Shown here is a 179-nucleotide RNA sequence from Thalassovita taeanensis, a member of the family "Ruegeria cis52 sRNA". The organism belongs to Thalassovita, within Bacteria.

[Rfam]
RNA sequence: UGCGCAGCGCAUGUUUGACCACGAUGUUGCGGAAACUCACACCUUUCAGCCGGGCGGUACGGAUAUACUGCGCCGUCAUUACCUCGGCCAUCGAGGCGCGGGUCAUACGUGCGAUAUAGCCCAUACCGUAAAGCGCAAUGGUCAGCACCGGCAGGAAGAAGUUUUCAAACGUGGCGUCU
Numbered sequence: 001u002g003c004g005c006a007g008c009g010c011a012u013g014u015u016u017g018a019c020c021a022c023g024a025u026g027u028u029g030c031g032g033a034a035a036c037u038c039a040c041a042c043c044u045u046u047c048a049g050c051c052g053g054g055c056g057g058u059a060c061g062g063a064u065a066u067a068c069u070g071c072g073c074c075g076u077c078a079u080u081a082c083c084u085c086g087g088c089c090a091u092c093g094a095g096g097c098g099c100g101g102g103u104c105a106u107a108c109g110u111g112c113g114a115u116a117u118a119g120c121c122c123a124u125a126c127c128g129u130a131a132a133g134c135g136c137a138a139u140g141g142u143c144a145g146c147a148c149c150g151g152c153a154g155g156a157a158g159a160a161g162u163u164u165u166c167a168a169a170c171g172u173g174g175c176g177u178c179u
Base pairs, nucleotide, nucleotide: 005140006139009136010135012133014131015130016128017127021124028123029122031120038113040111041110042109046105048103050101051100052099054097055075056074057073058072060070061069062068082096083095084094085093086092145179147177149174151172152171154165155164156163157162